[Rfam]
RNA sequence: CGCCAGGGACGACCCUGGCGGCUAUGACCAACCCGGGACGGCCCG
Dot-bracket structure: ((((((((....)))))))).............((((....))))
The record is a 45-nucleotide RNA from Hyphomicrobium sp. MC1, which matches "Guanidine-II riboswitch aptamer (mini-ykkC)" in Rfam. It scores 43 bits against the family's covariance model. Rfam's curators write: Simpler in structure and has fewer highly conserved nucleotide positions than the ykkC-yxkD leader.